[Rfam]
RNA sequence: GAGUCUGACAUGCGUGCGAGUCGACGGGUUCUGAAACCUGGGAUGCGCAAGGAAGCUGACGAGCGGGAGGCCCUCAUGGGCCGCACCGCUGGCCGACCCUGAUCUUCUGUGAAGGGUUCGAGUUGGAGCACGCCUGCCGGGACCCGAAAGAUGGUGAACUAUGCCUGAGCGGGGCGAAGCCAGAGGAAACUCUGGUGGAGGCUCGAAGCGAUACUGACGUGCAAAUCGUUCGUCUGACUUGGGUAUAGGGGCGAAAGACUAAUCGAACCAUAUAUAGUAGCUGGUU
Number, nucleotide and partner (000 for none) at each position: 001g000002a000003g000004u000005c140006u139007g138008a000009c136010a135011u000012g133013c132014g131015u130016g129017c128018g000019a000020g046021u045022c000023g000024a000025c040026g039027g038028g037029u036030u035031c000032u000033g000034a000035a030036a029037c028038c027039u026040g025041g000042g000043a000044u000045g021046c020047g000048c000049a000050a057051g056052g000053a000054a000055g000056c051057u050058g000059a000060c000061g000062a090063g089064c088065g087066g086067g000068a000069g082070g081071c080072c000073c000074u000075c000076a000077u000078g000079g000080g071081c070082c069083g000084c000085a000086c066087c065088g064089c063090u062091g000092g123093c122094c120095g119096a118097c116098c115099c114100u000101g000102a000103u000104c109105u000106u000107c000108u000109g104110u000111g000112a000113a000114g099115g098116g097117u000118u096119c095120g094121a000122g093123u092124u000125g000126g000127a000128g017129c016130a015131c014132g013133c012134c000135u010136g009137c000138c007139g006140g005141g000142a000143c284144c283145c000146g281147a000148a000149a000150g000151a271152u270153g269154g268155u267156g000157a000158a000159c248160u247161a246162u245163g244164c243165c242166u241167g240168a239169g238170c236171g000172g204173g203174g202175c201176g000177a000178a000179g196180c195181c194182a193183g192184a191185g190186g000187a000188a000189a000190c185191u184192c183193u182194g181195g180196u179197g000198g000199a000200g000201g175202c174203u173204c172205g000206a000207a000208g233209c232210g231211a230212u000213a229214c228215u000216g227217a226218c000219g000220u000221g000222c000223a000224a000225a000226u217227c216228g214229u213230u211231c210232g209233u208234c000235u000236g170237a000238c169239u168240u167241g166242g165243g164244u163245a162246u161247a160248g159249g000250g260251g259252c000253g000254a000255a000256a000257g000258a000259c251260u250261a000262a000263u000264c000265g000266a000267a155268c154269c153270a152271u151272a000273u000274a000275u000276a000277g000278u000279a000280g000281c146282u000283g144284g143285u000286u000
RNA: Eukaryotic large subunit ribosomal RNA, nucleotides 663 to 948
Organism: Aegilops tauschii